[Rfam]
About this RNA: Shown here is an 89-nucleotide sequence from Cellulosimicrobium funkei, a member of the family "ZMP/ZTP riboswitch aptamer (pfl RNA motif)".

RNA sequence: GGCGACGGCCGCGACUGGCGAGGGUGGGAACGACCACCGGGGAGCGGCCGGAUCAACCUGCUGGUGCGUCGACCGCCUGGGCGCCUGGG
Numbered sequence: 001g002g003c004g005a006c007g008g009c010c011g012c013g014a015c016u017g018g019c020g021a022g023g024g025u026g027g028g029a030a031c032g033a034c035c036a037c038c039g040g041g042g043a044g045c046g047g048c049c050g051g052a053u054c055a056a057c058c059u060g061c062u063g064g065u066g067c068g069u070c071g072a073c074c075g076c077c078u079g080g081g082c083g084c085c086u087g088g089g
Stems, first nucleotide, its partner, number of pairs: 006050007015041002017077004024037004066084005

For this family Rfam cites "Metal Ion-Mediated Nucleobase Recognition by the ZTP Riboswitch" (Trausch et al., Chem Biol, 2015).